[Rfam]
The family of this 53-nucleotide sequence from Collinsella sp. CAG:166 is "Enterococcus sRNA 55". The source organism's lineage runs through Bacteria, Coriobacteriia, Coriobacteriales, Coriobacteriaceae and Collinsella. The literature on the family includes a 2015 paper in RNA by Innocenti et al., "Whole-genome mapping of 5' RNA ends in bacteria by tagged sequencing: a comprehensive view in Enterococcus faecalis".

RNA sequence: GAUAUAUAUGGAUAAGGGGCUCCUCCGUUGGUGGACGGGGGAGUCCCUUGUUG
Numbered sequence: 001g002a003u004a005u006a007u008a009u010g011g012a013u014a015a016g017g018g019g020c021u022c023c024u025c026c027g028u029u030g031g032u033g034g035a036c037g038g039g040g041g042a043g044u045c046c047c048u049u050g051u052u053g
Stems, first nucleotide, its partner, number of pairs: 015048015